The family of this 132-nucleotide RNA sequence from Caenorhabditis japonica is "Nematode snoRNA ceN39". The base pairs follow the family's consensus structure, which was predicted with RNAalifold. A reference for the family is Jia et al. (2007), "Systematic identification of non-coding RNA 2,2,7-trimethylguanosine cap structures in Caenorhabditis elegans", BMC Mol Biol.
RNA sequence: UAGGCGGUUAGGAACCAGUUCAUGUCUGUACGUGAUUUGGGCCGACAUCCCCGCCAAAAUGGAACUCUUGAAGAUUUAAGGUCGCUUCUGAAUGGAUUUGCCAUCAGGUGCACACCAUCUUCACGUACACUU
Number, nucleotide and partner (000 for none) at each position: 001u000002a000003g055004g054005c053006g052007g051008u000009u000010a000011g043012g042013a000014a000015c040016c039017a038018g037019u000020u035021c034022a033023u032024g031025u030026c000027u000028g000029u000030a025031c024032g023033u022034g021035a020036u000037u018038u017039g016040g015041g000042c012043c011044g000045a000046c000047a000048u000049c000050c000051c007052c006053g005054c004055c003056a000057a000058a000059a000060u000061g000062g000063a000064a000065c000066u000067c000068u000069u123070g122071a121072a120073g119074a118075u117076u000077u000078a000079a000080g116081g115082u114083c000084g111085c110086u000087u108088c107089u106090g105091a104092a000093u103094g102095g101096a000097u000098u000099u000100g000101c095102c094103a093104u091105c090106a089107g088108g087109u000110g085111c084112a000113c000114a082115c081116c080117a075118u074119c073120u072121u071122c070123a069124c000125g000126u000127a000128c000129a000130c000131u000132u000